This 64-nucleotide RNA sequence from Haemaphysalis longicornis belongs to the Rfam family "Selenocysteine insertion sequence 1". Rfam links the family to the GO term selenocysteine incorporation. The organism belongs to Haemaphysalis, within Eukaryota. It scores 35 bits against the family's covariance model.

[Rfam]
RNA sequence: GCUGCUGCUAUGAUGGCUUCUGCUGCAAUUCUCUGCGAGGCAAAGCAGAAGUCUGAGAUGCAGC
Numbered sequence: 001g002c003u004g005c006u007g008c009u010a011u012g013a014u015g016g017c018u019u020c021u022g023c024u025g026c027a028a029u030u031c032u033c034u035g036c037g038a039g040g041c042a043a044a045g046c047a048g049a050a051g052u053c054u055g056a057g058a059u060g061c062a063g064c
Stems, first nucleotide, its partner, number of pairs: 001064005015053010030040003